[Rfam]
A member of the RNA family "mir-153 microRNA precursor family" from Petromyzon marinus, 72 nucleotides long. Pairs were carried over by alignment from the consensus structure, which was predicted with RNAalifold. NCBI's taxonomy places the organism under Eukaryota, Bilateria, Deuterostomia, Cyclostomata, Petromyzon.
RNA sequence: GCUGAUGUCAUUUUUGUGAUUUGCAACUCGUUUUACGUGUGAAGUUGCAUAGUCACAAAAGUGAUCAUCAGA
Numbered sequence: 001g002c003u004g005a006u007g008u009c010a011u012u013u014u015u016g017u018g019a020u021u022u023g024c025a026a027c028u029c030g031u032u033u034u035a036c037g038u039g040u041g042a043a044g045u046u047g048c049a050u051a052g053u054c055a056c057a058a059a060a061g062u063g064a065u066c067a068u069c070a071g072a
Stems, first nucleotide, its partner, number of pairs: 002071006008064013022049007